[Rfam]
RNA sequence: CUACCAUGGCCCAGCACUUACUCACGUGUGUGUAUAUGUGUUUGUGUGUGUUAGAAAUAAGAGCUGACAUUAUCCUGCUGAAAGAAAAUCUGUGUUGAUCGUUUUUUGAUUUUGCCAUUUAUGGUGGUAAAAUCAUGACAGAUUGACAUAAACAGUU
Numbered sequence: 001c002u003a004c005c006a007u008g009g010c011c012c013a014g015c016a017c018u019u020a021c022u023c024a025c026g027u028g029u030g031u032g033u034a035u036a037u038g039u040g041u042u043u044g045u046g047u048g049u050g051u052u053a054g055a056a057a058u059a060a061g062a063g064c065u066g067a068c069a070u071u072a073u074c075c076u077g078c079u080g081a082a083a084g085a086a087a088a089u090c091u092g093u094g095u096u097g098a099u100c101g102u103u104u105u106u107u108g109a110u111u112u113u114g115c116c117a118u119u120u121a122u123g124g125u126g127g128u129a130a131a132a133u134c135a136u137g138a139c140a141g142a143u144u145g146a147c148a149u150a151a152a153c154a155g156u157u
Stems, first nucleotide, its partner, number of pairs: 012066004017061004091150010107135012
Dot-bracket structure: ...........((((.((((.....................................)))).))))........................((((((((((......((((((((((((.....)))))))))))).....)))))))))).......
Small nucleolar RNA SNORA69: a 157-nucleotide RNA from Muntiacus reevesi. The family has 16 seed sequences and 808 matches in Rfam 15.1. The family's consensus secondary structure was predicted with PFOLD. U69 is a member of the H/ACA class of small nucleolar RNAs (snoRNAs) which act as guides in the the modification of uridines to pseudouridines. Rfam links the family to the GO terms nucleolus and RNA processing. The match comes from Rfam's covariance-model search (79 bits).